[Rfam]
RNA sequence: CCCAGGGUUCAAACCCUGGGCUAUGUUCGGUGCCGUCCCUCCAGGACG
Numbered sequence: 001c002c003c004a005g006g007g008u009u010c011a012a013a014c015c016c017u018g019g020g021c022u023a024u025g026u027u028c029g030g031u032g033c034c035g036u037c038c039c040u041c042c043a044g045g046a047c048g
Base pairs, nucleotide, nucleotide: 001020002019003018004017005016006015007014008013035047036046037045038044
Dot-bracket structure: ((((((((....))))))))..............((((.....)))).

Shown here is a 48-nucleotide RNA from Candidatus Electrothrix aarhusensis, a member of the family "Acido-Lenti-1 RNA". Rfam 15.1 lists 2,607 matches to the family in 171 species. Rfam classes the family as a small RNA. It scores 40 bits against the family's covariance model.